Shown here is a 97-nucleotide RNA from Hordeum vulgare, a member of the family "Small nucleolar RNA Z157/R69/R10".
The literature on the family includes a 2003 paper in Nucleic Acids Res by Chen et al., "The high diversity of snoRNAs in plants: identification and comparative study of 120 snoRNA genes from Oryza sativa".
Rfam 15.1 lists 836 matches to the family in 232 species.
Gene Ontology terms of the family: RNA processing and nucleolus.
It is annotated as a C/D-box small nucleolar RNA.
NCBI's taxonomy places the organism under Eukaryota, Streptophyta, Embryophyta, commelinids, Hordeum vulgare.
Clan: SNORD52 clan.
RNA sequence: CGAGUAGCGGUGAUGACAUCUAUGUGGACUAGAGUUUCUGAUGCUGCCUCUUCAGCAGCGCCUUUGAAGACAAACCCUUGGCUGUCUGAGCUCCCAG
Numbered sequence: 001c002g003a004g005u006a007g008c009g010g011u012g013a014u015g016a017c018a019u020c021u022a023u024g025u026g027g028a029c030u031a032g033a034g035u036u037u038c039u040g041a042u043g044c045u046g047c048c049u050c051u052u053c054a055g056c057a058g059c060g061c062c063u064u065u066g067a068a069g070a071c072a073a074a075c076c077c078u079u080g081g082c083u084g085u086c087u088g089a090g091c092u093c094c095c096a097g
Stems, first nucleotide, its partner, number of pairs: 001097001004094001006092003035069004042060006